[Rfam]
RNA sequence: GGUUUUUACCCAGUUACCAAGGUAUGCUGGAGUUCUGACCUUUCGAAAGAAAGUGUUAAACGAAUCUAAUUUUUGGAUUCGCUCUGCUGGGGUUAUCCGGCAGGGCAAA
Numbered sequence: 001g002g003u004u005u006u007u008a009c010c011c012a013g014u015u016a017c018c019a020a021g022g023u024a025u026g027c028u029g030g031a032g033u034u035c036u037g038a039c040c041u042u043u044c045g046a047a048a049g050a051a052a053g054u055g056u057u058a059a060a061c062g063a064a065u066c067u068a069a070u071u072u073u074u075g076g077a078u079u080c081g082c083u084c085u086g087c088u089g090g091g092g093u094u095a096u097c098c099g100g101c102a103g104g105g106c107a108a109a
Stems, first nucleotide, its partner, number of pairs: 008033001009030002013027002015024003036058004040053005083107001085105001087103003091098002

Source information
A member of the RNA family "SL2 RNA", 109 nucleotides long. About the family: This family represents SL2 RNA. SL2 RNA is involved in trans splicing in lower eukaryotes. It is annotated as a non-coding RNA gene. A search with the family's covariance model found it, with a score of 98 bits.